[Rfam]
A member of the RNA family "Burkholderia RNA 7 (anti-hemB)" from Candidatus Nitrotoga fabula, 94 nucleotides long. For this family Rfam cites "Identification of 22 candidate structured RNAs in bacteria using the CMfinder comparative genomics pipeline" (Weinberg et al., Nucleic Acids Res, 2007). By type it is a small RNA. It scores 65 bits against the family's covariance model. About the family: This RNA motif was identified by computational search in b-proteobacteria Burkholderia. Co-purified with Hfq, expression confirmed by Northern blot.
RNA sequence: UCUCCCGCUUUUCCUCCCUGAGCGGGGUGUUUUGACUUAAAAGUCAAGGCAUUUACGCCCCUGGUCUUUACUUUAUUGACCAGGGGUUUUUUUU
Number, nucleotide and partner (000 for none) at each position: 001u000002c000003u000004c026005c025006c024007g023008c022009u021010u000011u000012u000013c000014c000015u000016c000017c000018c000019u000020g000021a009022g008023c007024g006025g005026g004027g000028u000029g050030u049031u048032u047033u046034g045035a044036c000037u000038u000039a000040a000041a000042a000043g000044u035045c034046a033047a032048g031049g030050c029051a000052u000053u000054u000055a000056c000057g000058c086059c085060c084061c083062u082063g081064g080065u079066c000067u000068u000069u000070a000071c000072u000073u000074u000075a000076u000077u000078g000079a065080c064081c063082a062083g061084g060085g059086g058087u000088u000089u000090u000091u000092u000093u000094u000